[Rfam]
RNA: rpsB sRNA
Organism: Beijerinckiaceae bacterium RH AL1
RNA sequence: CACACGCGGAUCGCGCGCGCCUGCCUGAAGGCGUGCUUCCGGUGCCCCCCGGGGCCAACCGAUCCGCGGAGGUUCAACCGGAGAAUCAUAGGUCU
Numbered sequence: 001c002a003c004a005c006g007c008g009g010a011u012c013g014c015g016c017g018c019g020c021c022u023g024c025c026u027g028a029a030g031g032c033g034u035g036c037u038u039c040c041g042g043u044g045c046c047c048c049c050c051g052g053g054g055c056c057a058a059c060c061g062a063u064c065c066g067c068g069g070a071g072g073u074u075c076a077a078c079c080g081g082a083g084a085a086u087c088a089u090a091g092g093u094c095u
Stems, first nucleotide, its partner, number of pairs: 001071001003069001005068007015036007044056001046054003